RNA sequence: AAGGGCACUCGCUUCUUUUCUGGUUGGGUUUAGAUGCUUUAAUCUUAACAUGGACGAAUGCUUUUUGUGU
Dot-bracket structure: .((((((.(((.(((.(....((((((((......)).)))))).....).)))))).))))))......
RNA: Enterococcus sRNA 64
Organism: Enterococcus ratti